The family of this 200-nucleotide RNA from Desulfosporosinus sp. HMP52 is "Group II catalytic intron D1-D4-5".
[Rfam]
RNA sequence: UAGAAUUAACAUCUUGAAAAGUAAAUAAUGGGGUAACGCCUUGAAAGGCUUUUCUUUAAUACUCCGAUAGGCGUGUAUAUGAUUAAGCGUCGAAGCGUCUGAAGCUCGGUAAAGUCACAUGAGAAUUACCCUUAGAGGAAAUCUCUAGGGAAACCUAUCCAGAGGUGGAUGGUGUAGUCCAUAGUGCGGGAGUCUAAAAA
Numbered sequence: 001u002a003g004a005a006u007u008a009a010c011a012u013c014u015u016g017a018a019a020a021g022u023a024a025a026u027a028a029u030g031g032g033g034u035a036a037c038g039c040c041u042u043g044a045a046a047g048g049c050u051u052u053u054c055u056u057u058a059a060u061a062c063u064c065c066g067a068u069a070g071g072c073g074u075g076u077a078u079a080u081g082a083u084u085a086a087g088c089g090u091c092g093a094a095g096c097g098u099c100u101g102a103a104g105c106u107c108g109g110u111a112a113a114g115u116c117a118c119a120u121g122a123g124a125a126u127u128a129c130c131c132u133u134a135g136a137g138g139a140a141a142u143c144u145c146u147a148g149g150g151a152a153a154c155c156u157a158u159c160c161a162g163a164g165g166u167g168g169a170u171g172g173u174g175u176a177g178u179c180c181a182u183a184g185u186g187c188g189g190g191a192g193u194c195u196a197a198a199a200a
Stems, first nucleotide, its partner, number of pairs: 018053002020050003030042004054192004064109004068101007076093001079090003116188001118186003125178005130150003137146002155172007

The family has 139 seed sequences and 720 matches in Rfam 15.1. About the family: Group II introns are found in rRNA, tRNA and mRNA of organelles in fungi, plants and protists, and also in mRNA in bacteria. Taxonomically the source falls in Desulfosporosinus (Bacteria, Clostridia, Eubacteriales, Desulfitobacteriaceae). The base pairs follow the family's consensus structure. The literature on the family includes a 2001 paper in EMBO J by Chu et al., "Control of branch-site choice by a group II intron". Gene Ontology term of the family: Group II intron splicing.